[Rfam]
The family of this 62-nucleotide RNA sequence from Otolemur garnettii is "U7 small nuclear RNA".

RNA sequence: AAGUGUUAACUGCUCUUUCAGAGUUUGUCUAGAUGGUUUUUGGUCCUCACUGGAAGACCAAA
Numbered sequence: 001a002a003g004u005g006u007u008a009a010c011u012g013c014u015c016u017u018u019c020a021g022a023g024u025u026u027g028u029c030u031a032g033a034u035g036g037u038u039u040u041u042g043g044u045c046c047u048c049a050c051u052g053g054a055a056g057a058c059c060a061a062a
Stems, first nucleotide, its partner, number of pairs: 035059006041052004